[Rfam]
RNA: Z30 small nucleolar RNA
Organism: Ornithorhynchus anatinus
RNA sequence: ACGCAGUGAUGAGCGGAAGUAUAGUUUGACCUGGUAUGGCCCAGGCUUCCCGGCUUGGGCCCUGACCAGGACAUGAUCACUUAAUCUUCUCUCUGAGCUG
Numbered sequence: 001a002c003g004c005a006g007u008g009a010u011g012a013g014c015g016g017a018a019g020u021a022u023a024g025u026u027u028g029a030c031c032u033g034g035u036a037u038g039g040c041c042c043a044g045g046c047u048u049c050c051c052g053g054c055u056u057g058g059g060c061c062c063u064g065a066c067c068a069g070g071a072c073a074u075g076a077u078c079a080c081u082u083a084a085u086c087u088u089c090u091c092u093c094u095g096a097g098c099u100g
Base pairs, nucleotide, nucleotide: 001099003098004097039060040059041058042057